[Rfam]
RNA sequence: UGGAGGACUGAGAAGGUAAGACAGUUAAUGCUGUAUCUUACUGGUUAUAGCCUCCAAAAUUAUAAUAGUGCAAUAGCAACUCACAUUCCCCUUCUGACAUGAGGGAAAACAGUACUGCGUUUG
Numbered sequence: 001u002g003g004a005g006g007a008c009u010g011a012g013a014a015g016g017u018a019a020g021a022c023a024g025u026u027a028a029u030g031c032u033g034u035a036u037c038u039u040a041c042u043g044g045u046u047a048u049a050g051c052c053u054c055c056a057a058a059a060u061u062a063u064a065a066u067a068g069u070g071c072a073a074u075a076g077c078a079a080c081u082c083a084c085a086u087u088c089c090c091c092u093u094c095u096g097a098c099a100u101g102a103g104g105g106a107a108a109a110c111a112g113u114a115c116u117g118c119g120u121u122u123g
Stems, first nucleotide, its partner, number of pairs: 002055005015042004019036001021034005075121003079113003087107001089105003093102002
This 123-nucleotide RNA from Aegithalos caudatus belongs to the Rfam family "Small nucleolar RNA SNORA47". A search with the family's covariance model found it, with a score of 78 bits. A reference for the family is Huttenhofer et al. (2001), "RNomics: an experimental approach that identifies 201 candidates for novel, small, non-messenger RNAs in mouse", EMBO J. It is annotated as an H/ACA-box small nucleolar RNA. Its family is annotated with RNA processing and nucleolus in the Gene Ontology. Lineage of the source: Eukaryota > Sauria > Saurischia > Coelurosauria > Aegithalos.